[Rfam]
RNA sequence: AUUAAUUAUCAAGAAUCUCUCUUCUUUAUUUUUGGAAAGAGAUAGCAACCUGCAUGCGUAAGCAAGGUGCUGCAAUCGAUAAGCCGAUAUAUUUAUUUUAUUAAAAUUAUAUCUUCGGAACAAAAACGCCUUAG
Numbered sequence: 001a002u003u004a005a006u007u008a009u010c011a012a013g014a015a016u017c018u019c020u021c022u023u024c025u026u027u028a029u030u031u032u033u034g035g036a037a038a039g040a041g042a043u044a045g046c047a048a049c050c051u052g053c054a055u056g057c058g059u060a061a062g063c064a065a066g067g068u069g070c071u072g073c074a075a076u077c078g079a080u081a082a083g084c085c086g087a088u089a090u091a092u093u094u095a096u097u098u099u100a101u102u103a104a105a106a107u108u109a110u111a112u113c114u115u116c117g118g119a120a121c122a123a124a125a126a127c128g129c130c131u132u133a134g
Stems, first nucleotide, its partner, number of pairs: 006082005015043006044071003049067003052063002056130001084118004
Shown here is a 134-nucleotide RNA sequence from Bernardetia litoralis, a member of the family "SAM-I/IV (S-adenosyl methionine) riboswitch aptamer".
Taxonomically the source falls in Bernardetia litoralis (Bacteria, Pseudomonadati, Bacteroidota, Bernardetiaceae).
A search with the family's covariance model found it, with a score of 47 bits.
Its Rfam clan is "SAM clan".